A member of the RNA family "Z6 small nucleolar RNA" from Marmota monax, 69 nucleotides long.
A search with the family's covariance model found it, with a score of 44 bits.
The literature on the family includes a 2002 paper in Mol Cell Biol by Galardi et al., "Purified box C/D snoRNPs are able to reproduce site-specific 2'-O-methylation of target RNA in vitro".
RNA sequence: UGCUGGUGGUGAAGCGUCCUCUCCCAGAGCUCUGGGCCUUGCCAGGGGUAAGCUGGACAGGUCACAGCA
Numbered sequence: 001u002g003c004u005g006g007u008g009g010u011g012a013a014g015c016g017u018c019c020u021c022u023c024c025c026a027g028a029g030c031u032c033u034g035g036g037c038c039u040u041g042c043c044a045g046g047g048g049u050a051a052g053c054u055g056g057a058c059a060g061g062u063c064a065c066a067g068c069a
Stems, first nucleotide, its partner, number of pairs: 001069004